RNA sequence: CUUCACCGAGCCCAGCCACAGCGGCCGGCCGUCCGCCCGUUCCUGCCCGUAGGUGGCCAGGAGUGCCUGCGCUUC
Numbered sequence: 001c002u003u004c005a006c007c008g009a010g011c012c013c014a015g016c017c018a019c020a021g022c023g024g025c026c027g028g029c030c031g032u033c034c035g036c037c038c039g040u041u042c043c044u045g046c047c048c049g050u051a052g053g054u055g056g057c058c059a060g061g062a063g064u065g066c067c068u069g070c071g072c073u074u075c
Stems, first nucleotide, its partner, number of pairs: 015025003033069001038065002043060003047056003
RNA: ASpks TB sRNA